Record summary:
Rfam assigns this 143-nucleotide sequence from Nitrobacter winogradskyi to the family "flg-Rhizobiales RNA". The base pairs follow the family's consensus structure, which is taken from published work. The family's RNA type in Rfam is cis-regulatory element. Lineage of the source: Bacteria > Pseudomonadota > Hyphomicrobiales > Nitrobacter > Nitrobacter winogradskyi. The sequence is in the family's curated seed alignment.
[Rfam]
RNA sequence: GAACCGGAAGGCUUGGGAGAGCCUGAAGGUUCCGAUCGAUCCGGUGCGGGCGGCUUGGGAGAGCCUUCCUCACGGAUCCUCAAGGGGAGAACCACCGAUGGAGAACACCCUCCUCAUCGGACUGUCGCGGCAGAUGAUGCUCG
Numbered sequence: 001g002a003a004c005c006g007g008a009a010g011g012c013u014u015g016g017g018a019g020a021g022c023c024u025g026a027a028g029g030u031u032c033c034g035a036u037c038g039a040u041c042c043g044g045u046g047c048g049g050g051c052g053g054c055u056u057g058g059g060a061g062a063g064c065c066u067u068c069c070u071c072a073c074g075g076a077u078c079c080u081c082a083a084g085g086g087g088a089g090a091a092c093c094a095c096c097g098a099u100g101g102a103g104a105a106c107a108c109c110c111u112c113c114u115c116a117u118c119g120g121a122c123u124g125u126c127g128c129g130g131c132a133g134a135u136g137a138u139g140c141u142c143g
Stems, first nucleotide, its partner, number of pairs: 001032005009024006038078006052065005095120005101115003105111001